[Rfam]
RNA: tRNA
RNA sequence: GUUUAUGUAGCUUACCUCCUCAAAGCAAUACACUGAAAAUGUUUAGACGGGCUCACAUCACCCCAUAAACA
Number, nucleotide and partner (000 for none) at each position: 001g070002u069003u068004u067005a066006u065007g064008u000009a000010g026011c025012u024013u023014a000015c000016c000017u000018c000019c000020u000021c000022a000023a013024a012025g011026c010027a000028a044029u000030a042031c041032a040033c000034u000035g000036a000037a000038a000039a000040u032041g031042u030043u000044u028045a000046g000047a000048c000049g063050g062051g061052c000053u000054c000055a000056c000057a000058u000059c000060a000061c051062c050063c049064c007065a006066u005067a004068a003069a002070c001071a000